The record is a 143-nucleotide RNA sequence from Psychromicrobium lacuslunae, which matches "SAM (S-adenosyl methionine) riboswitch aptamer" in Rfam.
Taxonomically the source falls in Psychromicrobium (Bacteria, Bacillati, Actinomycetes, Micrococcaceae).
The family is grouped with related families in Rfam's "SAM clan".
The match comes from Rfam's covariance-model search (85 bits).
[Rfam]
RNA sequence: GGUCAUGAGUGCCAGCAAAGUUCCAUGACUGUGAGUUAGAUGGAACGCCUGCCCCGGCUUGCUGGACGGCAACCCUCCUCCGCGGUGGGGUGCCCCGGGUGACGACCAGGCCCUCAUCACAAGAUGGGGAGCAAGCGCGGUCU
Numbered sequence: 001g002g003u004c005a006u007g008a009g010u011g012c013c014a015g016c017a018a019a020g021u022u023c024c025a026u027g028a029c030u031g032u033g034a035g036u037u038a039g040a041u042g043g044a045a046c047g048c049c050u051g052c053c054c055c056g057g058c059u060u061g062c063u064g065g066a067c068g069g070c071a072a073c074c075c076u077c078c079u080c081c082g083c084g085g086u087g088g089g090g091u092g093c094c095c096c097g098g099g100u101g102a103c104g105a106c107c108a109g110g111c112c113c114u115c116a117u118c119a120c121a122a123g124a125u126g127g128g129g130a131g132c133a134a135g136c137g138c139g140g141u142c143u
Stems, first nucleotide, its partner, number of pairs: 001107004009067001012065005019059004068094003073090003077085002110132002112129007